[Rfam]
RNA sequence: GAUAAUGGGGGUGAAAAACCCCCACGCCGAAAGACCAAGGUUUCCUGUCCCAUGUUAAUCAGGGCAGGGUAAGUCGGCCCCUAAGGCGAGGCGGAAACGCGUAGUCGAUGGGAAACAGAUUAAUAUUUCUGUACUUCUUUAUAUUGCGACGGAGGGACGGAGAAGGCUAAGCAAGCACGGUGUUGGUUAUCCGUGUGAAAGUAUGUAGGUUGAGAACUUAGGCAAAUCCGGGUUCUUAAGACUGAGAUACGAGACGAGACUCUACGGAGUUGAAGUUGUUGAUGCCAUGCUUCCAGGAAAAUCUUCUAAGCUUCAGAUAUAAAGGAACCGUACCCCAAACCGACACAGGUGGUUAGGUAGAGAAUACUAAGGCGCU
Numbered sequence: 001g002a003u004a005a006u007g008g009g010g011g012u013g014a015a016a017a018a019c020c021c022c023c024a025c026g027c028c029g030a031a032a033g034a035c036c037a038a039g040g041u042u043u044c045c046u047g048u049c050c051c052a053u054g055u056u057a058a059u060c061a062g063g064g065c066a067g068g069g070u071a072a073g074u075c076g077g078c079c080c081c082u083a084a085g086g087c088g089a090g091g092c093g094g095a096a097a098c099g100c101g102u103a104g105u106c107g108a109u110g111g112g113a114a115a116c117a118g119a120u121u122a123a124u125a126u127u128u129c130u131g132u133a134c135u136u137c138u139u140u141a142u143a144u145u146g147c148g149a150c151g152g153a154g155g156g157a158c159g160g161a162g163a164a165g166g167c168u169a170a171g172c173a174a175g176c177a178c179g180g181u182g183u184u185g186g187u188u189a190u191c192c193g194u195g196u197g198a199a200a201g202u203a204u205g206u207a208g209g210u211u212g213a214g215a216a217c218u219u220a221g222g223c224a225a226a227u228c229c230g231g232g233u234u235c236u237u238a239a240g241a242c243u244g245a246g247a248u249a250c251g252a253g254a255c256g257a258g259a260c261u262c263u264a265c266g267g268a269g270u271u272g273a274a275g276u277u278g279u280u281g282a283u284g285c286c287a288u289g290c291u292u293c294c295a296g297g298a299a300a301a302u303c304u305u306c307u308a309a310g311c312u313u314c315a316g317a318u319a320u321a322a323a324g325g326a327a328c329c330g331u332a333c334c335c336c337a338a339a340c341c342g343a344c345a346c347a348g349g350u351g352g353u354u355a356g357g358u359a360g361a362g363a364a365u366a367c368u369a370a371g372g373c374g375c376u
Stems, first nucleotide, its partner, number of pairs: 006024006025374004033354004039334002044068006053061002075330003080111002085106003089102001091100003115132005135326011146311002151306005159293004165286003170280005175196006197255001201250004208243003213236007221229002258271005340349002356368004
Overview:
Bacterial large subunit ribosomal RNA: a 376-nucleotide part of an RNA from Thalassotalea algicola. Gene Ontology terms of the family: structural constituent of ribosome and ribosome. The family's consensus secondary structure is taken from published work.